[Rfam]
RNA: Bacterial RNase P class A
RNA sequence: UGGGUCGACAAGACGGUCGCGUCGGCGGGUGCGAACCCGCCGCCGAGGAACGUCCGGGCUCCACAGAGCAGGGCGGUGGGUAACACCCACCCGGGGCAACCCGCGAGAAAGUGCAACAGAGAGCAGACCGCCACGGGUCGCACCCUCGGGUGCGACACGGGGUAAGGGUGAAACGGCGGUGUAAGAGACCACCAGCGGCUCGGGUGACCGGCCGGCUAUGUAAACCUCGCCCGGAGCAAGGUCAAAGAGGGGACGUCGAGGCUGCUCGCCGAGUCCCCGGGUAGACCGCUGGAGAGCUGCGGCAACGUAGUUCCGAGAGAGAUGGCCGUCCAUGGUGCUUCGGCACCGGGACAGAACCCGGCGUACCAGUCGGCCCAUUCG
Numbered sequence: 001u002g003g004g005u006c007g008a009c010a011a012g013a014c015g016g017u018c019g020c021g022u023c024g025g026c027g028g029g030u031g032c033g034a035a036c037c038c039g040c041c042g043c044c045g046a047g048g049a050a051c052g053u054c055c056g057g058g059c060u061c062c063a064c065a066g067a068g069c070a071g072g073g074c075g076g077u078g079g080g081u082a083a084c085a086c087c088c089a090c091c092c093g094g095g096g097c098a099a100c101c102c103g104c105g106a107g108a109a110a111g112u113g114c115a116a117c118a119g120a121g122a123g124c125a126g127a128c129c130g131c132c133a134c135g136g137g138u139c140g141c142a143c144c145c146u147c148g149g150g151u152g153c154g155a156c157a158c159g160g161g162g163u164a165a166g167g168g169u170g171a172a173a174c175g176g177c178g179g180u181g182u183a184a185g186a187g188a189c190c191a192c193c194a195g196c197g198g199c200u201c202g203g204g205u206g207a208c209c210g211g212c213c214g215g216c217u218a219u220g221u222a223a224a225c226c227u228c229g230c231c232c233g234g235a236g237c238a239a240g241g242u243c244a245a246a247g248a249g250g251g252g253a254c255g256u257c258g259a260g261g262c263u264g265c266u267c268g269c270c271g272a273g274u275c276c277c278c279g280g281g282u283a284g285a286c287c288g289c290u291g292g293a294g295a296g297c298u299g300c301g302g303c304a305a306c307g308u309a310g311u312u313c314c315g316a317g318a319g320a321g322a323u324g325g326c327c328g329u330c331c332a333u334g335g336u337g338c339u340u341c342g343g344c345a346c347c348g349g350g351a352c353a354g355a356a357c358c359c360g361g362c363g364u365a366c367c368a369g370u371c372g373g374c375c376c377a378u379u380c381g
Base pairs, nucleotide, nucleotide: 001377002376003375004374005373006372007371008370009369012330013329014328015327016326017325018324020045021044023042024041025040026039027038028037050364051363052362054361055360056359057358058357059236060235061234062233066267067266068265069264071232072231073230074229075228076090077089078088079087080086091105092103093102094101095100106227107226111225112224113221114220115219128167129166130163131162132161134159135158137156138155139154140153141152142151143150144149175193176192178190179189180188195216196214197213198212199211201210202209203208240287241286242285243284249278250277251276252275253274254273260270261269262268294313295312296311297310298309299308300307301306